[Rfam]
RNA sequence: CGGCGCUGCAUUCUUGGACGUUUCCUCCCUAAACUCGGCGGUGCCUCCCGGCACCGCCUUUUUUUUGCGAUCA
Numbered sequence: 001c002g003g004c005g006c007u008g009c010a011u012u013c014u015u016g017g018a019c020g021u022u023u024c025c026u027c028c029c030u031a032a033a034c035u036c037g038g039c040g041g042u043g044c045c046u047c048c049c050g051g052c053a054c055c056g057c058c059u060u061u062u063u064u065u066u067g068c069g070a071u072c073a
Stems, first nucleotide, its partner, number of pairs: 008019001011016001037058009
A member of the RNA family "Makes More Granules Regulator RNA (mmgR)" from Caldovatus sediminis, 73 nucleotides long. The family's RNA type in Rfam is small RNA. Lineage of the source: Bacteria > Pseudomonadota > Alphaproteobacteria > Acetobacterales > Caldovatus. About the family: SuhB later renamed mmgR (makes more granules regulator) was a putative non-coding RNA found multiple times in the Agrobacterium tumefaciens genome and related alpha-proteobacteria.